The family of this 90-nucleotide RNA from Parasphingopyxis marina is "Glycine riboswitch aptamer".
The source organism's lineage runs through Bacteria, Pseudomonadati, Sphingomonadales, Parasphingopyxidaceae and Parasphingopyxis.
This family represents the bacterial glycine riboswitch.
RNA sequence: GAUGACUGCGCGGGAGAGUGUGUGGCUUGCCACACCGCCGAAGGAGCAACCGCCCCGGAAUCUCUCAGGCCGAAGGACCGCGCAGCCAAU
Number, nucleotide and partner (000 for none) at each position: 001g000002a000003u000004g000005a000006c085007u084008g083009c082010g081011c080012g079013g078014g000015a000016g000017a000018g000019u000020g035021u034022g033023u032024g000025g000026c000027u000028u000029g000030c000031c000032a023033c022034a021035c020036c000037g070038c069039c068040g066041a065042a000043g000044g064045a063046g062047c000048a000049a000050c058051c057052g000053c000054c000055c000056c000057g051058g050059a000060a000061u000062c046063u045064c044065u041066c040067a000068g039069g038070c037071c000072g000073a000074a000075g000076g000077a000078c013079c012080g011081c010082g009083c008084a007085g006086c000087c000088a000089a000090u000